[Rfam]
RNA: Small nucleolar RNA MBII-202
RNA sequence: UGAUGACGCUUUCUCCGGAAUCUCUGCAGGCUGUGAUGACUGUACUUGAACCCUUUUCUGGCUGAUGACCAAAGCGGCUCCCUUCAGU
Numbered sequence: 001u002g003a004u005g006a007c008g009c010u011u012u013c014u015c016c017g018g019a020a021u022c023u024c025u026g027c028a029g030g031c032u033g034u035g036a037u038g039a040c041u042g043u044a045c046u047u048g049a050a051c052c053c054u055u056u057u058c059u060g061g062c063u064g065a066u067g068a069c070c071a072a073a074g075c076g077g078c079u080c081c082c083u084u085c086a087g088u
Base pairs, nucleotide, nucleotide: 002088004086005085006084